Record summary
The family of this 62-nucleotide sequence from Mus spicilegus is "U7 small nuclear RNA".
Nucleotides: 062
Base pairs, nucleotide, nucleotide: 034059035058036057037056038055039054040053042051043050044049
Number, partner (000 for none) and nucleotide at each position: 001000a002000g003000c004000u005000a006000u007000u008000a009000c010000a011000g012000u013000u014000c015000u016000u017000u018000u019000a020000c021000a022000a023000u024000u025000u026000u027000u028000c029000u030000a031000g032000g033000a034059g035058g036057u037056u038055u039054u040053c041000a042051g043050a044049c045000u046000u047000u048000g049044g050043u051042c052000a053040g054039a055038a056037a057036a058035c059034u060000c061000a062000u
The source organism's lineage runs through Eukaryota, Teleostomi, Dipnotetrapodomorpha, Muroidea and Mus. A search with the family's covariance model found it, with a score of 50 bits. The base pairs follow the family's consensus structure, which was predicted with PFOLD.